[Rfam]
RNA sequence: AGCUUUGCGCAGUGGCAUUACCUUAGCUGAUGAGGUCCAUCCGAGGCGCGGUUAUUGCUGAUUGAAAACUUUUCCCAAUACCCCGCAGACCACCUGAAGCAUAGUCGGCUUUGCAAUUUUUGUGGGCCCUACUUAGGG
Numbered sequence: 001a002g003c004u005u006u007g008c009g010c011a012g013u014g015g016c017a018u019u020a021c022c023u024u025a026g027c028u029g030a031u032g033a034g035g036u037c038c039a040u041c042c043g044a045g046g047c048g049c050g051g052u053u054a055u056u057g058c059u060g061a062u063u064g065a066a067a068a069c070u071u072u073u074c075c076c077a078a079u080a081c082c083c084c085g086c087a088g089a090c091c092a093c094c095u096g097a098a099g100c101a102u103a104g105u106c107g108g109c110u111u112u113g114c115a116a117u118u119u120u121u122g123u124g125g126g127c128c129c130u131a132c133u134u135a136g137g138g
Stems, first nucleotide, its partner, number of pairs: 020052003024048001026047003034042002085114003088110001090108002094104003127138004
Dot-bracket structure: ...................(((.(.(((.....((.....))..)))).)))................................((((.((..(((.....)))..)).).)))............((((....))))
RNA: U4 spliceosomal RNA
Organism: Nematostella vectensis